[Rfam]
RNA sequence: UUGCAUGAGGAUCGCCACCAGUCAGCGCGUCGCGCCCACUGGUGCGUUUCUC
Numbered sequence: 001u002u003g004c005a006u007g008a009g010g011a012u013c014g015c016c017a018c019c020a021g022u023c024a025g026c027g028c029g030u031c032g033c034g035c036c037c038a039c040u041g042g043u044g045c046g047u048u049u050c051u052c
Stems, first nucleotide, its partner, number of pairs: 016044007025035004
RNA: ffh sRNA